A member of the RNA family "Mason-Pfizer monkey virus packaging signal" from Molossus molossus, 287 nucleotides long. Gene Ontology term of the family: viral genome packaging. The literature on the family includes a 2004 paper in Virus Res by Mustafa et al., "Mutational analysis of the predicted secondary RNA structure of the Mason-Pfizer monkey virus packaging signal". Rfam classes the family as a cis-regulatory element.

RNA sequence: UGGCGCCCAACGUGGGGCUCCAGCACAGGGGAUCCAGUGAAGGACGCUGUUCGAGUGGCCGGCAGAAAGAAAAGCAAAGGAAAAGAAAGUAAAAGAAAAGAGGGAACGACGUGGGAACCUGCUACGUCUGCACCCCUCGGGUAAGUGAACGGCAAUUAUAGGUCAAGCAUUGAGCCAAGAUAAGAUGUUCGUUGAAGGACUAAAAAAGGCUAUCAAGGCACGAGGAGUAAAGGUGAAAAUUAAGCAUUUGUGUCAGUAUUUUGAUUAUAUUAAAGAAGUUUGUCCUU
Numbered sequence: 001u002g003g004c005g006c007c008c009a010a011c012g013u014g015g016g017g018c019u020c021c022a023g024c025a026c027a028g029g030g031g032a033u034c035c036a037g038u039g040a041a042g043g044a045c046g047c048u049g050u051u052c053g054a055g056u057g058g059c060c061g062g063c064a065g066a067a068a069g070a071a072a073a074g075c076a077a078a079g080g081a082a083a084a085g086a087a088a089g090u091a092a093a094a095g096a097a098a099a100g101a102g103g104g105a106a107c108g109a110c111g112u113g114g115g116a117a118c119c120u121g122c123u124a125c126g127u128c129u130g131c132a133c134c135c136c137u138c139g140g141g142u143a144a145g146u147g148a149a150c151g152g153c154a155a156u157u158a159u160a161g162g163u164c165a166a167g168c169a170u171u172g173a174g175c176c177a178a179g180a181u182a183a184g185a186u187g188u189u190c191g192u193u194g195a196a197g198g199a200c201u202a203a204a205a206a207a208g209g210c211u212a213u214c215a216a217g218g219c220a221c222g223a224g225g226a227g228u229a230a231a232g233g234u235g236a237a238a239a240u241u242a243a244g245c246a247u248u249u250g251u252g253u254c255a256g257u258a259u260u261u262u263g264a265u266u267a268u269a270u271u272a273a274a275g276a277a278g279u280u281u282g283u284c285c286u287u
Base pairs, nucleotide, nucleotide: 006031007030008029012026013025014024036048037047038046100138101137102135103134107130110126111125112124113123114122146165147164148163150162152159172213174210175209176208221263222262223261224260225259227257228256231249232248233247234246235245272287273286275284276283